[Rfam]
RNA sequence: GGCGAACGGGGCGAUGGAGCUCGCCCUCAUCCGCUCGGCGAGAGCCGGGAUGAUAGCUCCUACUGGGCU
Numbered sequence: 001g002g003c004g005a006a007c008g009g010g011g012c013g014a015u016g017g018a019g020c021u022c023g024c025c026c027u028c029a030u031c032c033g034c035u036c037g038g039c040g041a042g043a044g045c046c047g048g049g050a051u052g053a054u055a056g057c058u059c060c061u062a063c064u065g066g067g068c069u
Stems, first nucleotide, its partner, number of pairs: 010025004016060006034049006
Notes
Shown here is a 69-nucleotide RNA sequence from bacterium HR32, a member of the family "Fluoride riboswitch aptamer (crcB RNA motif)".